The family of this 100-nucleotide RNA from Piliocolobus tephrosceles is "Y RNA". Taxonomically the source falls in Piliocolobus (Eukaryota, Gnathostomata, Simiiformes, Cercopithecidae).
RNA sequence: GGCUGGUCCAAGUGCAGUGGUGUUUAUAACUAAUUGAUCCACCUUUUACAGAUUUCUUUGUUCCUUCUCCACUCCCAUGGCUCCAUUUUAAUAGCCUUUA
Numbered sequence: 001g002g003c004u005g006g007u008c009c010a011a012g013u014g015c016a017g018u019g020g021u022g023u024u025u026a027u028a029a030c031u032a033a034u035u036g037a038u039c040c041a042c043c044u045u046u047u048a049c050a051g052a053u054u055u056c057u058u059u060g061u062u063c064c065u066u067c068u069c070c071a072c073u074c075c076c077a078u079g080g081c082u083c084c085a086u087u088u089u090a091a092u093a094g095c096c097u098u099u100a
Base pairs, nucleotide, nucleotide: 001096002095003094004093005092007090010088011087014084017078018077019076020075022074028062029061030060032058033057